RNA sequence: AUUAUAUAGGGGCAAAGCUGCCGAAAGGCAGUGACGCAAAGCUACAGGGACUACAACCGUUUAUUAAGCUGCGGUAAUGUCAGCCAGCUCCAAUC
Numbered sequence: 001a002u003u004a005u006a007u008a009g010g011g012g013c014a015a016a017g018c019u020g021c022c023g024a025a026a027g028g029c030a031g032u033g034a035c036g037c038a039a040a041g042c043u044a045c046a047g048g049g050a051c052u053a054c055a056a057c058c059g060u061u062u063a064u065u066a067a068g069c070u071g072c073g074g075u076a077a078u079g080u081c082a083g084c085c086a087g088c089u090c091c092a093a094u095c
Stems, first nucleotide, its partner, number of pairs: 012037002017032006040089004047085002049081003056075004